[Rfam]
RNA sequence: GGUCUGAUCCGGGCCCCUCUGGCAGCCGAGGCGUCGGCUGCGAUGUCGGAACGCACAU
Dot-bracket structure: .....(.(((((.........((((((((....))))))))....))))).)......
Numbered sequence: 001g002g003u004c005u006g007a008u009c010c011g012g013g014c015c016c017c018u019c020u021g022g023c024a025g026c027c028g029a030g031g032c033g034u035c036g037g038c039u040g041c042g043a044u045g046u047c048g049g050a051a052c053g054c055a056c057a058u
Stems, first nucleotide, its partner, number of pairs: 006052001008050005022041008

Rfam assigns this 58-nucleotide RNA sequence from Azospirillum sp. RU38E to the family "terC RNA". The match comes from Rfam's covariance-model search (58 bits). NCBI's taxonomy places the organism under Bacteria, Pseudomonadati, Pseudomonadota, Azospirillaceae, Azospirillum.